Archaeal small subunit ribosomal RNA: a 358-nucleotide part of an RNA from Sulfuracidifex metallicus. NCBI's taxonomy places the organism under Archaea, Thermoproteati, Sulfolobales, Sulfuracidifex, Sulfuracidifex metallicus. Clan: SSU clan. The base pairs follow the family's consensus structure, which is taken from published work.
RNA sequence: GGCCUAAAGCGCCCGUAGCCGGCUCUGUAAGUCACUGCUUAAAGACCCGAGCUCAACUCGGGGAAGGGUAGUGAUACUACAGAGCUAGGGGGCGGGAGAGGUCGGGGGUACUCCUAGAGUAGGGGCGAAAUCCGUAGAUCCUAGGAGGACCACCAGUGGCGGAGGCGCCCGGCUAGAACGCGCCCGACGGUGAGGGGCGAAAGCUGGGGUAGCAAAAGGGAUUAGAUACCCCUGUAGUCCCAGCUGUAAACGAUGCGGGCUAGGUGUCACGUGAGCUUAGAGCCCACGUGGUGCCGCAGGGAAGCCUUUAAGCCCGCCGCCUGGGGAAUACGGCCGCAAGGCUGAAACUUAAAGGAAU
Number, nucleotide and partner (000 for none) at each position: 001g321002g320003c319004c000005u000006a000007a000008a000009g318010c000011g198012c197013c196014c195015g000016u192017a000018g191019c190020c189021g000022g085023c084024u083025c082026u081027g080028u079029a000030a078031g077032u074033c073034a072035c071036u070037g069038c068039u067040u066041a000042a000043a000044g000045a000046c062047c061048c060049g059050a058051g057052c000053u000054c000055a000056a000057c051058u050059c049060g048061g047062g046063g000064a000065a000066g040067g039068g038069u037070a036071g035072u034073g033074a032075u000076a000077c031078u030079a028080c027081a026082g025083a024084g023085c022086u000087a000088g000089g185090g184091g183092g181093c180094g179095g000096g000097a000098g000099a000100g174101g173102u172103c171104g170105g169106g168107g151108g150109u000110a000111c147112u146113c145114c144115u143116a142117g141118a000119g000120u000121a000122g133123g132124g131125g000126c000127g000128a000129a000130a000131u124132c123133c122134g000135u000136a000137g000138a000139u000140c000141c117142u116143a115144g114145g113146a112147g111148g000149a000150c108151c107152a000153c000154c000155a000156g000157u000158g000159g166160c165161g000162g000163a000164g000165g160166c159167g000168c106169c105170c104171g103172g102173c101174u100175a000176g000177a000178a000179c094180g093181c092182g000183c091184c090185c089186g000187a000188c000189g020190g019191u018192g016193a000194g000195g014196g013197g012198c011199g000200a000201a000202a000203g244204c243205u242206g241207g240208g239209g000210u000211a000212g238213c237214a000215a000216a000217a233218g232219g231220g230221a000222u000223u000224a000225g000226a000227u000228a000229c000230c220231c219232c218233u217234g000235u000236a000237g213238u212239c208240c207241c206242a205243g204244c203245u000246g000247u000248a000249a000250a000251c000252g000253a000254u000255g317256c316257g315258g314259g313260c312261u000262a000263g295264g294265u293266g292267u291268c290269a289270c288271g287272u286273g285274a000275g283276c282277u000278u000279a000280g000281a000282g276283c275284c000285c273286a272287c271288g270289u269290g268291g267292u266293g265294c264295c263296g000297c000298a000299g306300g305301g000302a000303a000304g000305c300306c299307u000308u000309u000310a000311a000312g260313c259314c258315c257316g256317c255318c009319g003320c002321c001322u000323g350324g349325g348326g000327a000328a000329u000330a000331c000332g343333g342334c341335c340336g000337c000338a000339a000340g335341g334342c333343u332344g000345a000346a000347a000348c325349u324350u323351a000352a000353a000354g000355g000356a000357a000358u000